[Rfam]
RNA sequence: AAUCAAAUAACGCCGAAUCCUGAUUCGUCAGGUACGGGGGAUAAGCAACACAGGGGUGAAUGUGCAUUUCGCACUAGGGCGACUCCCGCCCGAAUCCGUCAACUAACCUCGGAGGCGAUAGGGGGGAACGCU
Numbered sequence: 001a002a003u004c005a006a007a008u009a010a011c012g013c014c015g016a017a018u019c020c021u022g023a024u025u026c027g028u029c030a031g032g033u034a035c036g037g038g039g040g041a042u043a044a045g046c047a048a049c050a051c052a053g054g055g056g057u058g059a060a061u062g063u064g065c066a067u068u069u070c071g072c073a074c075u076a077g078g079g080c081g082a083c084u085c086c087c088g089c090c091c092g093a094a095u096c097c098g099u100c101a102a103c104u105a106a107c108c109u110c111g112g113a114g115g116c117g118a119u120a121g122g123g124g125g126g127a128a129c130g131c132u
Stems, first nucleotide, its partner, number of pairs: 011117004019032004035111005054097003062074004077091004
RNA: c-di-AMP riboswitch aptamer (ydaO/yuaA leader)